[Rfam]
RNA sequence: CGAAUUCUCUUACAGAGCUCAGGGCCUUCAGUAAGACCCGAUCGAGAAUUUUUGCAGACCCCAGAUGAGUGCUGGGGUU
Numbered sequence: 001c002g003a004a005u006u007c008u009c010u011u012a013c014a015g016a017g018c019u020c021a022g023g024g025c026c027u028u029c030a031g032u033a034a035g036a037c038c039c040g041a042u043c044g045a046g047a048a049u050u051u052u053u054g055c056a057g058a059c060c061c062c063a064g065a066u067g068a069g070u071g072c073u074g075g076g077g078u079u
Stems, first nucleotide, its partner, number of pairs: 022039003026035003058078007065070001

Shown here is a 79-nucleotide sequence from Angiostrongylus costaricensis, a member of the family "SmY spliceosomal RNA". The family has 61 seed sequences and 408 matches in Rfam 15.1. The match comes from Rfam's covariance-model search (48 bits). NCBI's taxonomy places the organism under Eukaryota, Protostomia, Rhabditida, Rhabditomorpha, Angiostrongylus.